[Rfam]
RNA sequence: CUUCCUAUCGCGCCGAGCUCCAUCCGUUGGGCAGAGGAUCCGACCACCACCACGGAUGGAGGCGGGGGACCCAACCGGUCCACCGAAUCGGACCUGGAGUCGCACGCGACUCCUUGGGGUGAAGCCGACAUCGCAUUCCGGACCACCGGAUCGCGGAGCCGGCCGGGCAACCUCUCCAGCCCGAACCCGACAGCUGACCUCGCAGGCGCAUGACGAGAGGACUU
Numbered sequence: 001c002u003u004c005c006u007a008u009c010g011c012g013c014c015g016a017g018c019u020c021c022a023u024c025c026g027u028u029g030g031g032c033a034g035a036g037g038a039u040c041c042g043a044c045c046a047c048c049a050c051c052a053c054g055g056a057u058g059g060a061g062g063c064g065g066g067g068g069a070c071c072c073a074a075c076c077g078g079u080c081c082a083c084c085g086a087a088u089c090g091g092a093c094c095u096g097g098a099g100u101c102g103c104a105c106g107c108g109a110c111u112c113c114u115u116g117g118g119g120u121g122a123a124g125c126c127g128a129c130a131u132c133g134c135a136u137u138c139c140g141g142a143c144c145a146c147c148g149g150a151u152c153g154c155g156g157a158g159c160c161g162g163c164c165g166g167g168c169a170a171c172c173u174c175u176c177c178a179g180c181c182c183g184a185a186c187c188c189g190a191c192a193g194c195u196g197a198c199c200u201c202g203c204a205g206g207c208g209c210a211u212g213a214c215g216a217g218a219g220g221a222c223u224u
Stems, first nucleotide, its partner, number of pairs: 011208004018061010062203006072116002117188003125162003165182004
Description: Rfam assigns this 224-nucleotide RNA sequence from Mycolicibacterium confluentis to the family "c-di-AMP riboswitch aptamer (ydaO/yuaA leader)". Taxonomically the source falls in Mycobacterium (subgen. Mycolicibacterium) (Bacteria, Bacillati, Actinomycetes, Mycobacteriaceae).